Background: The record is a 67-nucleotide sequence, which matches "S15-Flavobacteria ribosomal protein leader" in Rfam. The family's RNA type in Rfam is cis-regulatory leader. It is one of the family's seed sequences. The literature on the family includes a 2020 paper in BMC Microbiol by Eckert and Weinberg, "Discovery of 20 novel ribosomal leader candidates in bacteria and archaea".

[Rfam]
RNA sequence: UAGCUUUGCACACGAAUUACGAAAACCGUAUUUUCUACAUAAUAAUCAUUUAAAUAAUAUUAGCAUG
Numbered sequence: 001u002a003g004c005u006u007u008g009c010a011c012a013c014g015a016a017u018u019a020c021g022a023a024a025a026c027c028g029u030a031u032u033u034u035c036u037a038c039a040u041a042a043u044a045a046u047c048a049u050u051u052a053a054a055u056a057a058u059a060u061u062a063g064c065a066u067g
Stems, first nucleotide, its partner, number of pairs: 014033003018030002